[Rfam]
RNA sequence: CCCCUUCAAUUCCUGACGGCUUUCCCCUAUAUUGGUCCUGUUCGGCUUCGGCCGGACUAUGGCGAUAAACGUGCCUGUAAUAAGCGGACCGGACCCGGGUGCGAUUCCCGGCGGCUCCACCAUUCUCUCCCGGUUAUCAGCGGGUUAGUGCGGGGCCGACUAGCAUCGACGGACGUGUAAAGAGGAUUGCUUUCGCUCGUCCUGACCCACCGUAUCGGGUCAUUUUCUAGCUGCGAACGAUAACUUCGCUGGGGAAUACGCUGUCGCCGCGUAAUGCGGUUCCGGUAAUUCCGAACUAACUCCUGGGGGUUCAGAUCCUCAGGCGGGGCCCGGAGGGCGCCUGGCAACAGAAGCCCUCCACU
Dot-bracket structure: .......................................(((((((....)))))))...(((((.....((((((........((..(((...(((((.......)))))(((((((.................................)))))))...........))).)).......)))..)))..)))))[[...((((((..]]....)))))).......................................................................................................[[[[..((((((.]]]]...........))))))...

The family of this 362-nucleotide RNA from Brevundimonas sp. M20 is "Alphaproteobacteria transfer-messenger RNA". It is annotated as a non-coding RNA gene. Its Rfam clan is "tRNA clan". Lineage of the source: Bacteria > Pseudomonadati > Pseudomonadota > Caulobacterales > Brevundimonas.